The family of this 252-nucleotide sequence from Streptomyces solincola is "Actinobacteria sRNA Ms_IGR-5".
It scores 69 bits against the family's covariance model.
The base pairs follow the family's consensus structure.
RNA sequence: ACACGAGAAAGGAGGUGAUCCGGAAGUGAUGUCGUUUCGGAUGCGUGAGGUGACUGCGGGCUAAGGCCUGCCGUCGCACUCUGUGCAGCACUUCGGUGCGCGUGUCGCCUCGGCGCGCAAGGCGCAUGUCACCGCGGUGUCCCCGCGGCAGGCCUCCUGCCGCAAUUCCCAGCAGUCACCGACCCGCGGGUCCGCCGGCACAUCCGGCCGGCCUCUCCGGCAGGAGAGAGCAGGACCCGCGGGUUUCUGCAU
Numbered sequence: 001a002c003a004c005g006a007g008a009a010a011g012g013a014g015g016u017g018a019u020c021c022g023g024a025a026g027u028g029a030u031g032u033c034g035u036u037u038c039g040g041a042u043g044c045g046u047g048a049g050g051u052g053a054c055u056g057c058g059g060g061c062u063a064a065g066g067c068c069u070g071c072c073g074u075c076g077c078a079c080u081c082u083g084u085g086c087a088g089c090a091c092u093u094c095g096g097u098g099c100g101c102g103u104g105u106c107g108c109c110u111c112g113g114c115g116c117g118c119a120a121g122g123c124g125c126a127u128g129u130c131a132c133c134g135c136g137g138u139g140u141c142c143c144c145g146c147g148g149c150a151g152g153c154c155u156c157c158u159g160c161c162g163c164a165a166u167u168c169c170c171a172g173c174a175g176u177c178a179c180c181g182a183c184c185c186g187c188g189g190g191u192c193c194g195c196c197g198g199c200a201c202a203u204c205c206g207g208c209c210g211g212c213c214u215c216u217c218c219g220g221c222a223g224g225a226g227a228g229a230g231c232a233g234g235a236c237c238c239g240c241g242g243g244u245u246u247c248u249g250c251a252u
Base pairs, nucleotide, nucleotide: 015057016056017055019053059161060160061159063158065156066153067152068151069150071148072147073146181245182244183243184242185241186240187239188238189237190236191235192234194212195211196210197209198208199207